Notes:
Rfam assigns this 106-nucleotide sequence from Niveibacterium umoris to the family "Glycine riboswitch aptamer". A search with the family's covariance model found it, with a score of 42 bits.
RNA sequence: UCCGAAAAAUCUGGAGAGCAGGUGCGGCCUGACCGCAUCCACCGAAGGGGCAGACAUACCGGAGCCGGUAUGCAAUCUCUCAGGUACCAAGGACAGAUGGGGCUCG
Numbered sequence: 001u002c003c004g005a006a007a008a009a010u011c012u013g014g015a016g017a018g019c020a021g022g023u024g025c026g027g028c029c030u031g032a033c034c035g036c037a038u039c040c041a042c043c044g045a046a047g048g049g050g051c052a053g054a055c056a057u058a059c060c061g062g063a064g065c066c067g068g069u070a071u072g073c074a075a076u077c078u079c080u081c082a083g084g085u086a087c088c089a090a091g092g093a094c095a096g097a098u099g100g101g102g103c104u105c106g
Base pairs, nucleotide, nucleotide: 009098010097011096012095013094021039022038023037024036041085042084043083044081045080048079049078050077
Background:
Taxonomically the source falls in Niveibacterium (Bacteria, Pseudomonadati, Betaproteobacteria, Rhodocyclales).